[Rfam]
RNA: mir-156 microRNA precursor family
Organism: Spirodela intermedia
RNA sequence: CUGACAGAAGAGAGUGAGCACACACAGGAGGAAGGUAUUAAUGGAUGCCAUCCCCCCCGUGCGUGCUCACUCCUCUCUCUGUCGG
Numbered sequence: 001c002u003g004a005c006a007g008a009a010g011a012g013a014g015u016g017a018g019c020a021c022a023c024a025c026a027g028g029a030g031g032a033a034g035g036u037a038u039u040a041a042u043g044g045a046u047g048c049c050a051u052c053c054c055c056c057c058c059g060u061g062c063g064u065g066c067u068c069a070c071u072c073c074u075c076u077c078u079c080u081g082u083c084g085g
Base pairs, nucleotide, nucleotide: 001085002084003083004082005081006080007079008078010075011074012073013071014070015069016068017067018066019065020064021063023061024060025059